[Rfam]
RNA sequence: UAUUAAAAAUUUCAUCCAUUUUUACCGUUAAAAACUGGCAUGACUGACGGAAUAACUAGACAGUUACAUGUGGCACGCCACAUGUACCUCAUUCUAGUGUACAGCAAUCAGUUUUUAACAAUAGAAAUUAAUGGAAUUUUUCAUA
Numbered sequence: 001u002a003u004u005a006a007a008a009a010u011u012u013c014a015u016c017c018a019u020u021u022u023u024a025c026c027g028u029u030a031a032a033a034a035c036u037g038g039c040a041u042g043a044c045u046g047a048c049g050g051a052a053u054a055a056c057u058a059g060a061c062a063g064u065u066a067c068a069u070g071u072g073g074c075a076c077g078c079c080a081c082a083u084g085u086a087c088c089u090c091a092u093u094c095u096a097g098u099g100u101a102c103a104g105c106a107a108u109c110a111g112u113u114u115u116u117a118a119c120a121a122u123a124g125a126a127a128u129u130a131a132u133g134g135a136a137u138u139u140u141u142c143a144u145a
Base pairs, nucleotide, nucleotide: 002144003143005141006140007139008138009137010136011135012134013133014132015131018128019127020126021125022124023123024122028118029117030116031115032114033113